[Rfam]
RNA: terC RNA
RNA sequence: CUUGCGGACCGGGCCCCUCUGGCGAGGGCUUCUACAAGCCCUCGUGAUGUCGGACCGCAUCG
Numbered sequence: 001c002u003u004g005c006g007g008a009c010c011g012g013g014c015c016c017c018u019c020u021g022g023c024g025a026g027g028g029c030u031u032c033u034a035c036a037a038g039c040c041c042u043c044g045u046g047a048u049g050u051c052g053g054a055c056c057g058c059a060u061c062g
Stems, first nucleotide, its partner, number of pairs: 006056002009053004022045008
Dot-bracket structure: .....((.((((.........((((((((........))))))))....)))).))......